[Rfam]
RNA sequence: AUGCGAUGAGCCGAAUUUGGCAUAUAGCCAUAUUUGCGCAUGGGAGGUCAUAACGCAGGAGCGGACCUUGAUAAAUUGUGUGAACCUUUUUAUCACACUAAAUUUUAGUGCCCAUCCCCCCUACAUUUUUGUGGGGGAUUUUU
Number, nucleotide and partner (000 for none) at each position: 001a000002u000003g000004c000005g000006a000007u000008g000009a000010g000011c000012c036013g035014a034015a033016u032017u000018u030019g029020g028021c027022a000023u000024a000025u000026a000027g021028c020029c019030a018031u000032a016033u015034u014035u013036g012037c000038g000039c000040a000041u114042g113043g112044g111045a068046g067047g066048u065049c000050a000051u000052a000053a000054c063055g062056c061057a000058g000059g000060a000061g056062c055063g054064g000065a048066c047067c046068u045069u095070g094071a093072u092073a091074a090075a089076u000077u000078g000079u000080g000081u000082g000083a000084a000085c000086c000087u000088u000089u075090u074091u073092a072093u071094c070095a069096c110097a109098c108099u107100a000101a000102a000103u000104u000105u000106u000107a099108g098109u097110g096111c044112c043113c042114a041115u000116c000117c000118c137119c136120c135121c134122u133123a132124c131125a130126u000127u000128u000129u000130u125131g124132u123133g122134g121135g120136g119137g118138a000139u000140u000141u000142u000143u000
RNA: MarS sRNA
Organism: Streptococcus ovuberis